[Rfam]
RNA sequence: CACCUCUUUAAAUCAGUCCCGUGAGGCUGUUAAGAGGUACACUCUUUCUUGGGCACCUGUGUGCUUUUUUACAGGAGUAGUGUAACCUCUUUGUCAUGGGCAAGGAGGUUUUUUGUU
Dot-bracket structure: ..((((((.....(((((......)))))..))))))...............((.((((((.(....).)))))).))...(.((((((((((((...)))))))))))).).....
RNA: PyrR binding site